[Rfam]
RNA sequence: GAUCAUGCUUUUCCACAGCUUUCUUGAACUUUUUUUAAUAUAUAUGUAUAUGUAUAUGUAUAUGUAUAUGUAUAUAUGUGUGUGUAUGUGUAUGUGUUUGUAUGAAAGUUCAAGAAAGCUGUGGGAGAACAUGAUGG
Numbered sequence: 001g002a003u004c005a006u007g008c009u010u011u012u013c014c015a016c017a018g019c020u021u022u023c024u025u026g027a028a029c030u031u032u033u034u035u036u037a038a039u040a041u042a043u044a045u046g047u048a049u050a051u052g053u054a055u056a057u058g059u060a061u062a063u064g065u066a067u068a069u070g071u072a073u074a075u076a077u078g079u080g081u082g083u084g085u086a087u088g089u090g091u092a093u094g095u096g097u098u099u100g101u102a103u104g105a106a107a108g109u110u111c112a113a114g115a116a117a118g119c120u121g122u123g124g125g126a127g128a129a130c131a132u133g134a135u136g137g
Stems, first nucleotide, its partner, number of pairs: 003134005013124003017120006024113004029108005
A member of the RNA family "MIR396 microRNA precursor family" from Hibiscus trionum, 137 nucleotides long. It scores 81 bits against the family's covariance model. A reference for the family is Xie et al. (2005), "Expression of Arabidopsis MIRNA genes", Plant Physiol. The base pairs follow the family's consensus structure, which was predicted with WAR.